This 64-nucleotide sequence from Pyrobaculum neutrophilum belongs to the Rfam family "Pyrobaculum sRNA 209".
[Rfam]
RNA sequence: GGCAGGAUCGGCCUCGGAGUGGGCCGGCGGCCCCCUAUGAGAGAGGCCCCGGAUCUAAGCGAAA
Numbered sequence: 001g002g003c004a005g006g007a008u009c010g011g012c013c014u015c016g017g018a019g020u021g022g023g024c025c026g027g028c029g030g031c032c033c034c035c036u037a038u039g040a041g042a043g044a045g046g047c048c049c050c051g052g053a054u055c056u057a058a059g060c061g062a063a064a
Stems, first nucleotide, its partner, number of pairs: 010048006021033005

Non canonical pseudouridylation guide sRNA features. Predicted to target 16S U8 in Pyrobaculum.
It is one of the family's seed sequences.
A reference for the family is Bernick et al. (2012), "Discovery of Pyrobaculum small RNA families with atypical pseudouridine guide RNA features", RNA.